[Rfam]
RNA sequence: UUUGUGAGGGAUAUUGCCUGGUUCGAUGCAUUCACUCUAGUUCUUAUGAUAUUGAAAAGAAGGGUGAUUGCAUCGGACCAGGCUUUAUUCCUUUCAAA
Numbered sequence: 001u002u003u004g005u006g007a008g009g010g011a012u013a014u015u016g017c018c019u020g021g022u023u024c025g026a027u028g029c030a031u032u033c034a035c036u037c038u039a040g041u042u043c044u045u046a047u048g049a050u051a052u053u054g055a056a057a058a059g060a061a062g063g064g065u066g067a068u069u070g071c072a073u074c075g076g077a078c079c080a081g082g083c084u085u086u087a088u089u090c091c092u093u094u095c096a097a098a
Base pairs, nucleotide, nucleotide: 001098002097003096004095006093007092008091009090010089011088012087013086016083017082018081019080020079021078024075025074026073
Dot-bracket structure: ((((.((((((((..((((((..(((..............................................)))..))))))..)))))))).))))
Shown here is a 98-nucleotide RNA sequence from Cynara cardunculus, a member of the family "mir-166 microRNA precursor family". Rfam describes the family as follows. This family represents the plant microRNA (miRNA) precursor mir-166. Lineage of the source: Eukaryota > Streptophytina > Magnoliopsida > Cynara cardunculus > Cynara cardunculus subsp. cardunculus. It scores 61 bits against the family's covariance model. Its family is annotated with miRNA-mediated post-transcriptional gene silencing and RISC complex in the Gene Ontology.